[Rfam]
RNA sequence: UUCCUGGCUGUCUCUAAUUCGCUUGGUGCAGGUCGGGAACCGUUUCGUCCCGUUUGAGCCUAUGAAUCUGCUGGCUCGAGGCUGCGGGACGAAACGGAUCCCGCCUUGCAUCAACUGAAUCGGAGACCGCGGUGAAG
Numbered sequence: 001u002u003c004c005u006g007g008c009u010g011u012c013u014c015u016a017a018u019u020c021g022c023u024u025g026g027u028g029c030a031g032g033u034c035g036g037g038a039a040c041c042g043u044u045u046c047g048u049c050c051c052g053u054u055u056g057a058g059c060c061u062a063u064g065a066a067u068c069u070g071c072u073g074g075c076u077c078g079a080g081g082c083u084g085c086g087g088g089a090c091g092a093a094a095c096g097g098a099u100c101c102c103g104c105c106u107u108g109c110a111u112c113a114a115c116u117g118a119a120u121c122g123g124a125g126a127c128c129g130c131g132g133u134g135a136a137g
Stems, first nucleotide, its partner, number of pairs: 013124002017120004023114010034103005040097007

Background
A member of the RNA family "MIR168 microRNA precursor family" from Pyrus ussuriensis x Pyrus communis, 137 nucleotides long. The family has 10 seed sequences and 518 matches in Rfam 15.1. Its family is annotated with miRNA-mediated post-transcriptional gene silencing and RISC complex in the Gene Ontology. Lineage of the source: Eukaryota > Euphyllophyta > Rosaceae > Maleae > Pyrus.